[Rfam]
RNA sequence: GAGACAAUAGUAUGGUAGAAAGAAAGAUUCAUAUUUUUCUUUCUACCAUAUCGUCUAGUAUUGUCGAUGUACUAUAUAAAGUUUAUUGU
Numbered sequence: 001g002a003g004a005c006a007a008u009a010g011u012a013u014g015g016u017a018g019a020a021a022g023a024a025a026g027a028u029u030c031a032u033a034u035u036u037u038u039c040u041u042u043c044u045a046c047c048a049u050a051u052c053g054u055c056u057a058g059u060a061u062u063g064u065c066g067a068u069g070u071a072c073u074a075u076a077u078a079a080a081g082u083u084u085a086u087u088g089u
Stems, first nucleotide, its partner, number of pairs: 007054002010051019
RNA: Plastid-psbM 3UTR RNA
Organism: Ziziphus jujuba